RNA sequence: CUCUCCCUCUAAGCCAGAUGCCGGGCGUCUACGGGCGCCCGGAGAGUGCCGAGGGGAAAAGGAGCCGGACUCCUUCUCCGCAAGGGGAAAACAUUAACAGGCGCGGACGACUGGUAGGCGUAUGCCGAAGGCCGUCCGCACCG
Numbered sequence: 001c002u003c004u005c006c007c008u009c010u011a012a013g014c015c016a017g018a019u020g021c022c023g024g025g026c027g028u029c030u031a032c033g034g035g036c037g038c039c040c041g042g043a044g045a046g047u048g049c050c051g052a053g054g055g056g057a058a059a060a061g062g063a064g065c066c067g068g069a070c071u072c073c074u075u076c077u078c079c080g081c082a083a084g085g086g087g088a089a090a091a092c093a094u095u096a097a098c099a100g101g102c103g104c105g106g107a108c109g110a111c112u113g114g115u116a117g118g119c120g121u122a123u124g125c126c127g128a129a130g131g132c133c134g135u136c137c138g139c140a141c142c143g
Base pairs, nucleotide, nucleotide: 003056005055006054007053008052009051013049014048021042022041023040024039025038026037027036028035076087077086078085079084100142101141103139104138105137106136107135108134109133111131117126118125
A member of the RNA family "RT-14 RNA", 143 nucleotides long. It is one of the family's seed sequences. The family's RNA type in Rfam is small RNA.